[Rfam]
RNA: Manganese Mn2+ riboswitch aptamer (yybP-ykoY)
Organism: Luteibacter anthropi
RNA sequence: ACCGAUGUCAUUGGGGAGUAGCCAUCCUCUUUCCCCCUGAGGAGUUCGCGUCAACAGACUUGGUGGCCUUGUGCCCCAUGGCGCGAACGGCAGCGACGCAUGGAGAGUGCGUCGCCGGCCCGGCGAGACCUUUGGCCUUCGACAUGCUCACCCGGCCGGGCGAGCGGUGUCGUUGUGCCAUCGGUUCUUCGCGCUCGCCC
Numbered sequence: 001a002c003c004g005a006u007g008u009c010a011u012u013g014g015g016g017a018g019u020a021g022c023c024a025u026c027c028u029c030u031u032u033c034c035c036c037c038u039g040a041g042g043a044g045u046u047c048g049c050g051u052c053a054a055c056a057g058a059c060u061u062g063g064u065g066g067c068c069u070u071g072u073g074c075c076c077c078a079u080g081g082c083g084c085g086a087a088c089g090g091c092a093g094c095g096a097c098g099c100a101u102g103g104a105g106a107g108u109g110c111g112u113c114g115c116c117g118g119c120c121c122g123g124c125g126a127g128a129c130c131u132u133u134g135g136c137c138u139u140c141g142a143c144a145u146g147c148u149c150a151c152c153c154g155g156c157c158g159g160g161c162g163a164g165c166g167g168u169g170u171c172g173u174u175g176u177g178c179c180a181u182c183g184g185u186u187c188u189u190c191g192c193g194c195u196c197g198c199c200c
Base pairs, nucleotide, nucleotide: 026042027041028040044088045087046086047085048084049083050082051081052080053079061078062077063076065074095199
Dot-bracket structure: .........................(((...........))).((((((((((.......(((.(........).)))))))))))))......(.......................................................................................................).